Small nucleolar RNA Z155: a 78-nucleotide RNA from Citrus unshiu. The family's RNA type in Rfam is C/D-box small nucleolar RNA. Gene Ontology terms of the family: nucleolus and RNA processing. Pairs were carried over by alignment from the consensus structure. It scores 53 bits against the family's covariance model.

[Rfam]
RNA sequence: CAUUGAUGUGAUGAUGAUAAGCUUUUCAGAAAAUACGAUGUCGACUUAAUAAAACAGACUACAAUUAUCUGAUCAAUG
Numbered sequence: 001c002a003u004u005g006a007u008g009u010g011a012u013g014a015u016g017a018u019a020a021g022c023u024u025u026u027c028a029g030a031a032a033a034u035a036c037g038a039u040g041u042c043g044a045c046u047u048a049a050u051a052a053a054a055c056a057g058a059c060u061a062c063a064a065u066u067a068u069c070u071g072a073u074c075a076a077u078g
Stems, first nucleotide, its partner, number of pairs: 001078006